Shown here is a 110-nucleotide RNA sequence from Paraliobacillus sp. PM-2, a member of the family "epsC RNA". The source organism's lineage runs through Bacteria, Bacillati, Bacilli, Bacillaceae and Paraliobacillus. Pairs were carried over by alignment from the consensus structure, which is taken from published work. It scores 99 bits against the family's covariance model.
RNA sequence: AGGUGAUGUCUCCAACACCUUUAUCAACGGAGGCACUCGGCUAUGCUGUGGGUGGAAACACCUUAGCACUCGUUGGCAGUAGUGUAGCGUGAGGUAGGGUUAGAUGCCCU
Numbered sequence: 001a002g003g004u005g006a007u008g009u010c011u012c013c014a015a016c017a018c019c020u021u022u023a024u025c026a027a028c029g030g031a032g033g034c035a036c037u038c039g040g041c042u043a044u045g046c047u048g049u050g051g052g053u054g055g056a057a058a059c060a061c062c063u064u065a066g067c068a069c070u071c072g073u074u075g076g077c078a079g080u081a082g083u084g085u086a087g088c089g090u091g092a093g094g095u096a097g098g099g100u101u102a103g104a105u106g107c108c109c110u
Stems, first nucleotide, its partner, number of pairs: 001020004007035007036093004040088008050063005066077001067075002096110005